[Rfam]
RNA sequence: GUGAAUGAUAGAGGUGCGGUGAAUAAAGAGUACGUAUUGUGAGGUAGCCAAACAAUGACCAAUACGGAAAGGAAUUCCCGCCGAAGUCUAGGUUCAGGGCAAUGAAUCUUAGGCUGGGCUUGCAGUGAAAAAGUGCAAGACUGUCACCGGAAAUUGGUGGAGUGCUAUCUCGUCC
Dot-bracket structure: ......(((((....((((.((.(........(((((((....................)))))))......).)).))))...((((((((((((......)))))).))))))((.((((((.(.....).)))))).)).(((((((...)))))))....)))))......
Shown here is a 175-nucleotide sequence from Desulfitobacterium metallireducens, a member of the family "Lysine riboswitch aptamer".
The match comes from Rfam's covariance-model search (111 bits).
The organism belongs to Desulfitobacterium metallireducens, within Bacteria.
Its family is annotated with lysine biosynthetic process in the Gene Ontology.
Rfam's curators write: Riboswitches are metabolite binding domains within certain messenger RNAs that serve as precision sensors for their corresponding targets.